[Rfam]
Plastid-rps12 3UTR RNA: a 108-nucleotide RNA from Phaseolus vulgaris. On this family, see Richter et al., Plant Commun 2023: "Retrograde signaling in plants: A critical review focusing on the GUN pathway and beyond". The family's consensus secondary structure was predicted with LocARNA. Plastid rpl20 is a non-coding RNA (ncRNA) recognised in plastids. It was found in the three prime untranslated region (3UTR) of rps12 gene, its 3UTR location sugest a role in transcript maduration. The organism belongs to Phaseolus, within Eukaryota. Rfam's curators put it in the seed alignment. It is annotated as a cis-regulatory element.

RNA sequence: GGUUUCGAUUGGUGCAAAACCAAUCAUACUAAUUUGCAAUUUAAGAUGAGAAGGACUUUCCCAUCGGUAACAAAAAAAAGUUACCUGUUAAGCGGAGAAAAUACUAUU
Numbered sequence: 001g002g003u004u005u006c007g008a009u010u011g012g013u014g015c016a017a018a019a020c021c022a023a024u025c026a027u028a029c030u031a032a033u034u035u036g037c038a039a040u041u042u043a044a045g046a047u048g049a050g051a052a053g054g055a056c057u058u059u060c061c062c063a064u065c066g067g068u069a070a071c072a073a074a075a076a077a078a079a080g081u082u083a084c085c086u087g088u089u090a091a092g093c094g095g096a097g098a099a100a101a102u103a104c105u106a107u108u
Stems, first nucleotide, its partner, number of pairs: 009023004059097001061095002063088002066085006